[Rfam]
RNA: Bacterial antisense RNA HPnc0260
Organism: Marinitoga piezophila
RNA sequence: AAUAAUGUUCCAUCAAGAUCGAAGAUAAAUGUUUUAUUAUGCAAGUUUCUCACCCCUUAAAUUAUAUCAUACAUUUAACAAAAAAACAAAAAAAUGGGGAUAAAUUCCCCAUUUUCUGGUGGAGUCGAUGGGACUUGAACCCACGACCUCUACCG
Numbered sequence: 001a002a003u004a005a006u007g008u009u010c011c012a013u014c015a016a017g018a019u020c021g022a023a024g025a026u027a028a029a030u031g032u033u034u035u036a037u038u039a040u041g042c043a044a045g046u047u048u049c050u051c052a053c054c055c056c057u058u059a060a061a062u063u064a065u066a067u068c069a070u071a072c073a074u075u076u077a078a079c080a081a082a083a084a085a086a087c088a089a090a091a092a093a094a095u096g097g098g099g100a101u102a103a104a105u106u107c108c109c110c111a112u113u114u115u116c117u118g119g120u121g122g123a124g125u126c127g128a129u130g131g132g133a134c135u136u137g138a139a140c141c142c143a144c145g146a147c148c149u150c151u152a153c154c155g
Stems, first nucleotide, its partner, number of pairs: 024049002030043003065080001067078001117152003121148002126145002129143004